[Rfam]
RNA sequence: CUCUACUGAUGACCUCUAUUUUGAGCCAUGUGUCUGGGCCACUGAACUGAAGUGAUGGGAUUGAGGAACUGAGGAG
Numbered sequence: 001c002u003c004u005a006c007u008g009a010u011g012a013c014c015u016c017u018a019u020u021u022u023g024a025g026c027c028a029u030g031u032g033u034c035u036g037g038g039c040c041a042c043u044g045a046a047c048u049g050a051a052g053u054g055a056u057g058g059g060a061u062u063g064a065g066g067a068a069c070u071g072a073g074g075a076g
Base pairs, nucleotide, nucleotide: 001076002075003074004073
RNA: Small nucleolar RNA SNORD66
Organism: Denticeps clupeoides